[Rfam]
RNA sequence: UGGCGCCCAACGUGGGGCCUGGAAACGAGGGACUUCGUGAGAAAAGAGGACGCGAAAGGACGGUCGACCGUUAACAAAGACAAAAGAAAUUAGACUCCUCCGAUCACCGCGGGAACCUGCCGCGUCAGAAUCGAAGGUAAGUGAUGCGUCCGAAAUGGGACAAGAAUUAAGUCAACAUCAGAUCUAUGUAGGACAAUUAAAAGAGGCUUUAAAGAUACGAGGAGUAAAGGUUAAAAGUAAUGAUUUGUUUAAAUUUUUUGAUUUUGUAAAAGACACUUGUCCUU
Numbered sequence: 001u002g003g004c005g006c007c008c009a010a011c012g013u014g015g016g017g018c019c020u021g022g023a024a025a026c027g028a029g030g031g032a033c034u035u036c037g038u039g040a041g042a043a044a045a046g047a048g049g050a051c052g053c054g055a056a057a058g059g060a061c062g063g064u065c066g067a068c069c070g071u072u073a074a075c076a077a078a079g080a081c082a083a084a085a086g087a088a089a090u091u092a093g094a095c096u097c098c099u100c101c102g103a104u105c106a107c108c109g110c111g112g113g114a115a116c117c118u119g120c121c122g123c124g125u126c127a128g129a130a131u132c133g134a135a136g137g138u139a140a141g142u143g144a145u146g147c148g149u150c151c152g153a154a155a156u157g158g159g160a161c162a163a164g165a166a167u168u169a170a171g172u173c174a175a176c177a178u179c180a181g182a183u184c185u186a187u188g189u190a191g192g193a194c195a196a197u198u199a200a201a202a203g204a205g206g207c208u209u210u211a212a213a214g215a216u217a218c219g220a221g222g223a224g225u226a227a228a229g230g231u232u233a234a235a236a237g238u239a240a241u242g243a244u245u246u247g248u249u250u251a252a253a254u255u256u257u258u259u260g261a262u263u264u265u266g267u268a269a270a271a272g273a274c275a276c277u278u279g280u281c282c283u284u
Base pairs, nucleotide, nucleotide: 006031007030008029012026013025035050036049038047097137098136099134100133104130105128108124109123110122111121112120145162146161149159150158151157152156168211169210170209171207172206173205218260219259220258221257222256223255224254225253228246229245230244231243232242233241269284270283272281273280274279
Source information
Rfam assigns this 284-nucleotide RNA from Macaca nemestrina to the family "Mason-Pfizer monkey virus packaging signal". It scores 254 bits against the family's covariance model. A reference for the family is Mustafa et al. (2004), "Mutational analysis of the predicted secondary RNA structure of the Mason-Pfizer monkey virus packaging signal", Virus Res. This family represents a group of sequences that are related to the Mason-Pfizer monkey virus (MPMV) packaging signal. The packaging signal is located in the 5' UTR and is required for specific RNA encapsidation. Rfam classes the family as a cis-regulatory element. The family has 9 seed sequences and 2,921 matches in Rfam 15.1. Lineage of the source: Eukaryota > Metazoa > Sarcopterygii > Euarchontoglires > Macaca.